The record is a 344-nucleotide RNA sequence from Pluvianellus socialis, which matches "Nuclear RNase P" in Rfam.
By type it is a ribozyme.
NCBI's taxonomy places the organism under Eukaryota, Amniota, Sauropsida, Charadriidae, Pluvianellus.
A search with the family's covariance model found it, with a score of 161 bits.

[Rfam]
RNA sequence: UCCGGGGGAAGCUCACCGCCGAGGCCACCCACUGGGUGUGCGUCACCCGCUGCUCCGCCUCGGGGAAGGUCUGAGGGAAGGGCCGCCCGCGGCUCUAGCAGAGCCCCGCCCGCGAAGGGGCGGGUGAGCCACCAGCAAGGGGGGGCGCCGCGCCUAGGGCCCAUGGCGGGCAGGAGAAGCUGCGCUUGGGUUUCCCCGCUGGGUGCGUGGGUCACCCGGGAACCCCCGGCGGAUGCUCAUGGCCCCGCGGCGCUUUGAGACAGACUCACGGCCGGCGAUUGUUGAGUCCAAUGGGUGAGGUGGGGCACGGCCCUACAACCCAAUUCAGACUACUCUCCCCGGGA
Numbered sequence: 001u002c003c004g005g006g007g008g009a010a011g012c013u014c015a016c017c018g019c020c021g022a023g024g025c026c027a028c029c030c031a032c033u034g035g036g037u038g039u040g041c042g043u044c045a046c047c048c049g050c051u052g053c054u055c056c057g058c059c060u061c062g063g064g065g066a067a068g069g070u071c072u073g074a075g076g077g078a079a080g081g082g083c084c085g086c087c088c089g090c091g092g093c094u095c096u097a098g099c100a101g102a103g104c105c106c107c108g109c110c111c112g113c114g115a116a117g118g119g120g121c122g123g124g125u126g127a128g129c130c131a132c133c134a135g136c137a138a139g140g141g142g143g144g145g146c147g148c149c150g151c152g153c154c155u156a157g158g159g160c161c162c163a164u165g166g167c168g169g170g171c172a173g174g175a176g177a178a179g180c181u182g183c184g185c186u187u188g189g190g191u192u193u194c195c196c197c198g199c200u201g202g203g204u205g206c207g208u209g210g211g212u213c214a215c216c217c218g219g220g221a222a223c224c225c226c227c228g229g230c231g232g233a234u235g236c237u238c239a240u241g242g243c244c245c246c247g248c249g250g251c252g253c254u255u256u257g258a259g260a261c262a263g264a265c266u267c268a269c270g271g272c273c274g275g276c277g278a279u280u281g282u283u284g285a286g287u288c289c290a291a292u293g294g295g296u297g298a299g300g301u302g303g304g305g306c307a308c309g310g311c312c313c314u315a316c317a318a319c320c321c322a323a324u325u326c327a328g329a330c331u332a333c334u335c336u337c338c339c340c341g342g343g344a
Base pairs, nucleotide, nucleotide: 001344002343003342007338008337009336012299013298014297015296016295017294020062021061022060023059024058034048035047036046037045038044071328072327073326074325075324081273082272083271084270091105092104093103094102095101106123107122108121109120110119111118124269125268126267127266128265130263144254145253146252147251148250149249150248151247152246300316301315302314303313304312305311306310